[Rfam]
RNA sequence: GGCCUAAAACGUCCGUAGCCGGUCUGGUGCAUUCGUGGGUAAAUCAACCCGCUCAACGGGUUGAAUUCUGCGAGCACGGCCAGACUUGGGACCGGGAGAGGUGUGGGGUACUCUCAGGGUAGGGGUAAAAUCCUGUCAUCCUGAGAGGACCACCUGUUGCGAAGGCGCCACACUAGAACGGAUCCGACGGUCAGGGACGAAACCUAGGGGCACGAACCGGAUUAGAUACCCGGGUAGUCCUAGGUGUAAACGCUGUGGACUUGAUGUUGGGGGCGCUCCGAGCGCUCUCAGUGUCGAAGCGAAGGUGAUAAGUCCACUGCCUGGGGAGUACGGUCGCAAGGCUGAAACUUAAAGGAAU
Numbered sequence: 001g002g003c004c005u006a007a008a009a010c011g012u013c014c015g016u017a018g019c020c021g022g023u024c025u026g027g028u029g030c031a032u033u034c035g036u037g038g039g040u041a042a043a044u045c046a047a048c049c050c051g052c053u054c055a056a057c058g059g060g061u062u063g064a065a066u067u068c069u070g071c072g073a074g075c076a077c078g079g080c081c082a083g084a085c086u087u088g089g090g091a092c093c094g095g096g097a098g099a100g101g102u103g104u105g106g107g108g109u110a111c112u113c114u115c116a117g118g119g120u121a122g123g124g125g126u127a128a129a130a131u132c133c134u135g136u137c138a139u140c141c142u143g144a145g146a147g148g149a150c151c152a153c154c155u156g157u158u159g160c161g162a163a164g165g166c167g168c169c170a171c172a173c174u175a176g177a178a179c180g181g182a183u184c185c186g187a188c189g190g191u192c193a194g195g196g197a198c199g200a201a202a203c204c205u206a207g208g209g210g211c212a213c214g215a216a217c218c219g220g221a222u223u224a225g226a227u228a229c230c231c232g233g234g235u236a237g238u239c240c241u242a243g244g245u246g247u248a249a250a251c252g253c254u255g256u257g258g259a260c261u262u263g264a265u266g267u268u269g270g271g272g273g274c275g276c277u278c279c280g281a282g283c284g285c286u287c288u289c290a291g292u293g294u295c296g297a298a299g300c301g302a303a304g305g306u307g308a309u310a311a312g313u314c315c316a317c318u319g320c321c322u323g324g325g326g327a328g329u330a331c332g333g334u335c336g337c338a339a340g341g342c343u344g345a346a347a348c349u350u351a352a353a354g355g356a357a358u
Base pairs, nucleotide, nucleotide: 001321002320003319009318011198012197013196014195018191019190020189022085023084024083025082026081027080028079030078032074033073034072035071036070037069038068039067045063046062047061048060049059050058051057089185090184091183092181093180094179100174101173102172103171104170105169106168107151108150111147112146113145114144115143116142117141118140122133123132124131159166160165203244204243205242206241207240208239212238213237217233218232219231220230255317256316257315258314259313260312263295264294265293266292267291268290269289270288271287272286273285274284275283276282299306300305323350324349325348332343333342334341335340
Notes
Archaeal small subunit ribosomal RNA: a 358-nucleotide part of an RNA from uncultured marine group II euryarchaeote KM3-85-F5. The source organism's lineage runs through Archaea, Methanobacteriati, Thermoplasmatota, Candidatus Poseidoniia and Candidatus Poseidoniales. The base pairs follow the family's consensus structure, which is taken from published work. Rfam's curators put it in the seed alignment.